RNA sequence: CGGUAGAAAAGAUGGUUUAAACCACGCCUUCUACCAAGUUAGUAAAUAAAUAGGCG
Numbered sequence: 001c002g003g004u005a006g007a008a009a010a011g012a013u014g015g016u017u018u019a020a021a022c023c024a025c026g027c028c029u030u031c032u033a034c035c036a037a038g039u040u041a042g043u044a045a046a047u048a049a050a051u052a053g054g055c056g
Base pairs, nucleotide, nucleotide: 002035003034004033005032006031007030013024014023015022016021025056026055027054028053029052
A member of the RNA family "3'-terminal pseudoknot in PYVV" from Crinivirus flavisolani, 56 nucleotides long. Pairs were carried over by alignment from the consensus structure, which is taken from published work. It scores 75 bits against the family's covariance model. The literature on the family includes a 2004 paper in J Gen Virol by Livieratos et al., "Analysis of the RNA of Potato yellow vein virus: evidence for a tripartite genome and conserved 3'-terminal structures among members of the genus Crinivirus". NCBI's taxonomy places the organism under Viruses, Riboviria, Martellivirales, Closteroviridae, Crinivirus flavisolani.